The family of this 357-nucleotide part of an RNA from uncultured bacterium OMZ60_11L23 is "Bacterial small subunit ribosomal RNA".
[Rfam]
RNA sequence: GGCGUAAAGAGCACGUAGGUGGGUUUGCAAGUCAGAUGUGAAAGCCUUCUGUUCAACGGAAGAAUUGCAUCUGAAACUGCUAAUCUUGAGUAUAGGAGGGGAGAAUGGAACUUCUGGUGGAGCGGUGAAAUGCGUAGAUAUCAGAAGGAACGCCGGCGGCGAAAGCGAUUCUCUGGCCUAUUACUGACACUCAGUGUGCGAAAGCUAGGGGAGCAAACGGGAUUAGAUACCCCGGUAGUCCUAGCCGUAAACGAUGGGCACUAAGUAGAGGGGAUUACCUAUAUUCUCUCUGCCGUAGCUAACGCAUUAAGUGCCCCGCCUGGGGAGUACGGCCGCAAGGCUAAAACUCAAAAGAAU
Number, nucleotide and partner (000 for none) at each position: 001g320002g319003c318004g000005u000006a000007a000008a000009g317010a000011g199012c198013a197014c196015g000016u000017a000018g191019g190020u189021g000022g085023g084024u083025u082026u000027g080028c079029a000030a078031g077032u074033c073034a072035g071036a070037u069038g068039u067040g066041a000042a000043a000044g000045c000046c062047u061048u060049c059050u058051g057052u000053u000054c000055a000056a000057c051058g050059g049060a048061a047062g046063a000064a000065u000066u040067g039068c038069a037070u036071c035072u034073g033074a032075a000076a000077c031078u030079g028080c027081u000082a025083a024084u023085c022086u000087u000088g000089a185090g184091u183092a181093u180094a179095g178096g177097a000098g000099g000100g174101g173102a172103g171104a170105a169106u168107g151108g000109a000110a000111c147112u146113u145114c144115u143116g142117g141118u140119g000120g000121a000122g133123c132124g131125g000126u000127g000128a000129a000130a000131u124132g123133c122134g000135u000136a000137g000138a000139u000140a118141u117142c116143a115144g114145a113146a112147g111148g000149a000150a000151c107152g000153c000154c000155g000156g000157c000158g000159g166160c165161g000162a000163a000164a000165g160166c159167g000168a106169u105170u104171c103172u102173c101174u100175g000176g000177c096178c095179u094180a093181u092182u000183a091184c090185u089186g000187a000188c000189a020190c019191u018192c000193a000194g000195u000196g014197u013198g012199c011200g000201a000202a000203a000204g245205c244206u243207a242208g241209g240210g000211g000212a000213g239214c238215a000216a000217a000218c234219g233220g232221g231222a000223u000224u000225a000226g000227a000228u000229a000230c000231c221232c220233c219234g218235g000236u000237a000238g214239u213240c209241c208242u207243a206244g205245c204246c000247g000248u000249a000250a000251a000252c000253g000254a000255u000256g316257g315258g314259c313260a312261c311262u000263a000264a000265g293266u292267a291268g290269a289270g288271g287272g286273g285274a284275u283276u000277a000278c000279c000280u000281a000282u000283a275284u274285u273286c272287u271288c270289u269290c268291u267292g266293c265294c000295g000296u000297a000298g305299c304300u000301a000302a000303c000304g299305c298306a000307u000308u000309a000310a000311g261312u260313g259314c258315c257316c256317c009318g003319c002320c001321u000322g349323g348324g347325g000326a000327g000328u000329a000330c000331g342332g341333c340334c339335g000336c000337a000338a000339g334340g333341c332342u331343a000344a000345a000346a000347c324348u323349c322350a000351a000352a000353a000354g000355a000356a000357u000
The sequence is in the family's curated seed alignment.
The family's consensus secondary structure is taken from published work.